[Rfam]
RNA sequence: GCCGGGGCCUCACCAGCCCUGUAACCCCUCCGGGGGGGCUAGGUUGGUGCUGGAUGCCCACCGGGCCAGGCCCACAGCUGCUGCCGCGGCCCCAUGCCGAGGGCGUUCCCCCCCGGCAGGCCGGUGUUGCCAUGCGCGCGCCUGCGGAGGCACCGGCGUCGCACAGGGCAUUGAACACCGGGGCACAGGCACAGGCUGGACGACAGAGCAUGCAAAACCCGGGGCACCGGCCCAGGCCGGGGACACGGAGCCCGAGUGGACGCCCGGCCGGCAGCUCUGGCCCGAAGUGGGGCAGACCACCAACCGCUU
Numbered sequence: 001g002c003c004g005g006g007g008c009c010u011c012a013c014c015a016g017c018c019c020u021g022u023a024a025c026c027c028c029u030c031c032g033g034g035g036g037g038g039c040u041a042g043g044u045u046g047g048u049g050c051u052g053g054a055u056g057c058c059c060a061c062c063g064g065g066c067c068a069g070g071c072c073c074a075c076a077g078c079u080g081c082u083g084c085c086g087c088g089g090c091c092c093c094a095u096g097c098c099g100a101g102g103g104c105g106u107u108c109c110c111c112c113c114c115g116g117c118a119g120g121c122c123g124g125u126g127u128u129g130c131c132a133u134g135c136g137c138g139c140g141c142c143u144g145c146g147g148a149g150g151c152a153c154c155g156g157c158g159u160c161g162c163a164c165a166g167g168g169c170a171u172u173g174a175a176c177a178c179c180g181g182g183g184c185a186c187a188g189g190c191a192c193a194g195g196c197u198g199g200a201c202g203a204c205a206g207a208g209c210a211u212g213c214a215a216a217a218c219c220c221g222g223g224g225c226a227c228c229g230g231c232c233c234a235g236g237c238c239g240g241g242g243a244c245a246c247g248g249a250g251c252c253c254g255a256g257u258g259g260a261c262g263c264c265c266g267g268c269c270g271g272c273a274g275c276u277c278u279g280g281c282c283c284g285a286a287g288u289g290g291g292g293c294a295g296a297c298c299a300c301c302a303a304c305c306g307c308u309u
Base pairs, nucleotide, nucleotide: 001039002038003037004020005019006018007017008016025036026035027034042305043304044303045302046301047300048299049298051296055294056293057292058291059290060288062284063283064282065281066280067279068278069277076276077275078274079273080272081271082270083269085267087266088265089264092259093258094257095256097254101253102252103251104250106248107247110242111241113240114239115238116237117236119233120232121230122229123228124227125226126225127224128170129169130168131167133165134164136162137161138160139158140157141156142155143152144151145150171177178222179221180220181219182218189213190212191211196206197205198204